[Rfam]
RNA sequence: GCAAACUACUAGGGGUGCCUUUCGGCUGAGAGAAAAACGCUUGUUUUUUAACCCUUUUGACCUGAUCUGGAUCAUGCCAGCGUAGGGAAGUAGUUAAGUGAAACG
Numbered sequence: 001g002c003a004a005a006c007u008a009c010u011a012g013g014g015g016u017g018c019c020u021u022u023c024g025g026c027u028g029a030g031a032g033a034a035a036a037a038c039g040c041u042u043g044u045u046u047u048u049u050a051a052c053c054c055u056u057u058u059g060a061c062c063u064g065a066u067c068u069g070g071a072u073c074a075u076g077c078c079a080g081c082g083u084a085g086g087g088a089a090g091u092a093g094u095u096a097a098g099u100g101a102a103a104c105g
Stems, first nucleotide, its partner, number of pairs: 006093005011055004017026003033048005061086004067080004
RNA: TPP riboswitch aptamer (THI element)
Organism: Pullulanibacillus pueri